[Rfam]
Nucleotides: 081
Base pairs, nucleotide, nucleotide: 012070013069014068015067016066017065018064019063020062021060022059023058025057026056027055030052031051
Number, partner (000 for none) and nucleotide at each position: 001000g002000u003000g004000c005000a006000u007000u008000c009000g010000u011000a012070c013069c014068c015067u016066u017065a018064u019063c020062a021060u022059u023058c024000u025057u026056u027055c028000g029000c030052c031051c032000c033000g034000u035000g036000u037000g038000u039000g040000c041000a042000u043000u044000g045000u046000c047000g048000a049000c050000u051031g052030g053000a054000c055027g056026g057025a058023g059022a060021a061000c062020u063019g064018a065017u066016a067015a068014g069013g070012g071000c072000u073000c074000g075000u076000a077000u078000c079000a080000c081000c